[Rfam]
RNA sequence: GUUUUGAAAUGAAACUGACCUAAGACAGCAGGGGAGUACAACUCAUAAACAUCCUGCCGAGGCACAAAACGUAACGAAUAUUUUGUAACGUAUUGUACUUUCGUGUCUAGGUUUAGGUGCGAUUUUUUUGUGCCUAU
Number, nucleotide and partner (000 for none) at each position: 001g000002u000003u000004u000005u000006g000007a000008a000009a000010u000011g000012a000013a000014a000015c000016u000017g000018a000019c000020c000021u000022a000023a000024g000025a000026c000027a000028g057029c056030a055031g054032g053033g052034g044035a043036g042037u000038a000039c000040a000041a000042c036043u035044c034045a000046u000047a000048a000049a000050c000051a000052u033053c032054c031055u030056g029057c028058c000059g000060a000061g000062g000063c000064a000065c000066a000067a000068a000069a000070c000071g000072u000073a000074a000075c000076g000077a000078a000079u000080a000081u000082u000083u000084u000085g000086u000087a000088a000089c000090g000091u000092a000093u000094u000095g000096u000097a000098c000099u000100u000101u122102c121103g120104u119105g118106u117107c116108u115109a114110g000111g000112u000113u000114u109115a108116g107117g106118u105119g104120c103121g102122a101123u000124u000125u000126u000127u000128u000129u000130g000131u000132g000133c000134c000135u000136a000137u000
Rfam assigns this 137-nucleotide RNA sequence from Streptococcus pluranimalium to the family "Ribosomal protein L10 leader". The family's consensus secondary structure was predicted with CMfinder. From the family's description: This family is a putative r-protein leader autoregulatory structure found in B. subtilis and other low-GC Gram-positive bacteria. It is located in the 5' untranslated regions of mRNAs encoding ribosomal proteins L10 and L12 (rplJ-rplL). A Rho-independent transcription terminator structure that is probably involved in regulation is included at the 3' end.